[Rfam]
RNA sequence: UGGUAUCGGUGAAGACGCCGGUUACCCGCAACGGGACGGAAAGACCCCAUGCACCUUCACUACAACUUAACAUUGAUAUCGGCUACAGGAUGUGUAGGAUAGGUGGGAGACUGUGAUCAUGCUUCGCUAGGAGUAUGUUAGUCAACGUUGAAAUACCACCCUUUCUGUAUCUGGUGUCUAACUCUGCACAGCGGAGGACAUUGUUUGGCGGGUAGUUUGACUGGGGUGGUCGCCUCCAAAAAGGUAACGGAGGCUUUCAAAGGUAAGCUCAGUACGCUUGGUAACCGUACGCGGAGUGCAAUAGCAUAAGCUUGCUUGACUGUGAGGCAGACAAGCCGAGCAGGGUCGAAAGACGGAUAUAGUGAUCCGGUGGUUCUGCAUGGAAGGGCCAUCGCUCAAAGGAUAAAAGGUACGCUGGGGAUAACAGGCUGAUCUCCCCCAAGAGCUCAUAUCGACGGGGAGGUUUGGCACCUCGAUGUCGGCUCGUCACAUCCUGGGGCUGGAGAAGGUCCCAAGGGUUGAGCUGUUCGCUCAUUAAAGUGGCACGCGAGCUGGGUUCAGAACGUCGCGAGACAGUUCGGUCCCUAUCUGUUGUGGGCG
Numbered sequence: 001u002g003g004u005a006u007c008g009g010u011g012a013a014g015a016c017g018c019c020g021g022u023u024a025c026c027c028g029c030a031a032c033g034g035g036a037c038g039g040a041a042a043g044a045c046c047c048c049a050u051g052c053a054c055c056u057u058c059a060c061u062a063c064a065a066c067u068u069a070a071c072a073u074u075g076a077u078a079u080c081g082g083c084u085a086c087a088g089g090a091u092g093u094g095u096a097g098g099a100u101a102g103g104u105g106g107g108a109g110a111c112u113g114u115g116a117u118c119a120u121g122c123u124u125c126g127c128u129a130g131g132a133g134u135a136u137g138u139u140a141g142u143c144a145a146c147g148u149u150g151a152a153a154u155a156c157c158a159c160c161c162u163u164u165c166u167g168u169a170u171c172u173g174g175u176g177u178c179u180a181a182c183u184c185u186g187c188a189c190a191g192c193g194g195a196g197g198a199c200a201u202u203g204u205u206u207g208g209c210g211g212g213u214a215g216u217u218u219g220a221c222u223g224g225g226g227u228g229g230u231c232g233c234c235u236c237c238a239a240a241a242a243g244g245u246a247a248c249g250g251a252g253g254c255u256u257u258c259a260a261a262g263g264u265a266a267g268c269u270c271a272g273u274a275c276g277c278u279u280g281g282u283a284a285c286c287g288u289a290c291g292c293g294g295a296g297u298g299c300a301a302u303a304g305c306a307u308a309a310g311c312u313u314g315c316u317u318g319a320c321u322g323u324g325a326g327g328c329a330g331a332c333a334a335g336c337c338g339a340g341c342a343g344g345g346u347c348g349a350a351a352g353a354c355g356g357a358u359a360u361a362g363u364g365a366u367c368c369g370g371u372g373g374u375u376c377u378g379c380a381u382g383g384a385a386g387g388g389c390c391a392u393c394g395c396u397c398a399a400a401g402g403a404u405a406a407a408a409g410g411u412a413c414g415c416u417g418g419g420g421a422u423a424a425c426a427g428g429c430u431g432a433u434c435u436c437c438c439c440c441a442a443g444a445g446c447u448c449a450u451a452u453c454g455a456c457g458g459g460g461a462g463g464u465u466u467g468g469c470a471c472c473u474c475g476a477u478g479u480c481g482g483c484u485c486g487u488c489a490c491a492u493c494c495u496g497g498g499g500c501u502g503g504a505g506a507a508g509g510u511c512c513c514a515a516g517g518g519u520u521g522a523g524c525u526g527u528u529c530g531c532u533c534a535u536u537a538a539a540g541u542g543g544c545a546c547g548c549g550a551g552c553u554g555g556g557u558u559c560a561g562a563a564c565g566u567c568g569c570g571a572g573a574c575a576g577u578u579c580g581g582u583c584c585c586u587a588u589c590u591g592u593u594g595u596g597g598g599c600g
Stems, first nucleotide, its partner, number of pairs: 005022005025598008034590003038585002046419004051415002053411005059216004066208002069205004075178008084169007092161001102160005109143003118137008182196003187193001219231004232254006255400001257357002263315006269295002272290005296305002320343004326337003345354003368394007376387002428469003432466001433463007443453002480555001481553004485547001486544005493518002496513006520534005561579004565574003
RNA: Bacterial large subunit ribosomal RNA, nucleotides 2025 to 2624
Organism: Mucilaginibacter segetis